TPP riboswitch aptamer (THI element): a 121-nucleotide sequence from Reinekea marinisedimentorum. Taxonomically the source falls in Reinekea (Bacteria, Gammaproteobacteria, Oceanospirillales, Saccharospirillaceae). The match comes from Rfam's covariance-model search (67 bits).
RNA sequence: AAAGACUUGUCGGAGUGCUCGUAAGAGCUGAGAUCGCACCGUUCACCUUUUUGUGAACACAGCGGGAUCCGUGGAACCUGAUCAGGCUAGAACCUGCGAAGGAAACAAGAAACGCAUCUAA
Numbered sequence: 001a002a003a004g005a006c007u008u009g010u011c012g013g014a015g016u017g018c019u020c021g022u023a024a025g026a027g028c029u030g031a032g033a034u035c036g037c038a039c040c041g042u043u044c045a046c047c048u049u050u051u052u053g054u055g056a057a058c059a060c061a062g063c064g065g066g067a068u069c070c071g072u073g074g075a076a077c078c079u080g081a082u083c084a085g086g087c088u089a090g091a092a093c094c095u096g097c098g099a100a101g102g103a104a105a106c107a108a109g110a111a112a113c114g115c116a117u118c119u120a121a
Stems, first nucleotide, its partner, number of pairs: 006109005011071004016065001017028004035064003077102003083096004